The record is a 32-nucleotide RNA sequence, which matches "L31-Firmicutes ribosomal protein leader" in Rfam. By type it is a cis-regulatory leader.

[Rfam]
RNA sequence: CUAUGACCUAAAUUGAGUCAUGGCGGAAGGAG
Numbered sequence: 001c002u003a004u005g006a007c008c009u010a011a012a013u014u015g016a017g018u019c020a021u022g023g024c025g026g027a028a029g030g031a032g
Stems, first nucleotide, its partner, number of pairs: 001023007
Dot-bracket structure: (((((((.........))))))).........